Shown here is a 48-nucleotide sequence from Erwinia tasmaniensis, a member of the family "Guanidine-II riboswitch aptamer (mini-ykkC)".
RNA sequence: GGUUGAGGACGACCUCAACGUUUUCAGAUAUAUGACGGGACGACCCGC
Numbered sequence: 001g002g003u004u005g006a007g008g009a010c011g012a013c014c015u016c017a018a019c020g021u022u023u024u025c026a027g028a029u030a031u032a033u034g035a036c037g038g039g040a041c042g043a044c045c046c047g048c
Base pairs, nucleotide, nucleotide: 002019003018004017005016006015007014008013036047037046038045039044
About this RNA
The base pairs follow the family's consensus structure, which is taken from published work. From the family's description: Simpler in structure and has fewer highly conserved nucleotide positions than the ykkC-yxkD leader. Despite this each of its two stem-loop structures directly bind free guanidine. Gene Ontology term of the family: regulation of gene expression. A search with the family's covariance model found it, with a score of 40 bits.